RNA sequence: UGAAGGUGAAAGACAUGGGUAGUGAGACGUUUCAAGUUUGAAUCAUCGUGUCACUAUUCUGUUUUUCGCCUUCCG
Numbered sequence: 001u002g003a004a005g006g007u008g009a010a011a012g013a014c015a016u017g018g019g020u021a022g023u024g025a026g027a028c029g030u031u032u033c034a035a036g037u038u039u040g041a042a043u044c045a046u047c048g049u050g051u052c053a054c055u056a057u058u059c060u061g062u063u064u065u066u067c068g069c070c071u072u073c074c075g
Stems, first nucleotide, its partner, number of pairs: 008067008017059003021055005027049003
RNA: mir-71 microRNA precursor family